[Rfam]
RNA sequence: AUGAAUCUCACUGCAGCUGCUGGACGCUGCACAAGAUUAGCCAGGUUUAAACUCUUGUGCGUGUGACAGCGGCUAUUGUGGGCAUUCUCGAUCUUCGAU
Number, nucleotide and partner (000 for none) at each position: 001a000002u000003g000004a000005a085006u084007c082008u081009c080010a079011c078012u000013g000014c000015a074016g073017c072018u071019g070020c069021u068022g067023g000024a000025c063026g062027c000028u061029g060030c059031a058032c057033a056034a000035g054036a053037u000038u000039a000040g000041c000042c000043a000044g000045g000046u000047u000048u000049a000050a000051a000052c000053u036054c035055u000056u033057g032058u031059g030060c029061g028062u026063g025064u000065g000066a000067c022068a021069g020070c019071g018072g017073c016074u015075a000076u000077u000078g011079u010080g009081g008082g007083c000084a006085u005086u000087c000088u000089c000090g000091a000092u000093c000094u000095u000096c000097g000098a000099u000
RNA: mir-210 microRNA precursor family
Organism: Agrilus planipennis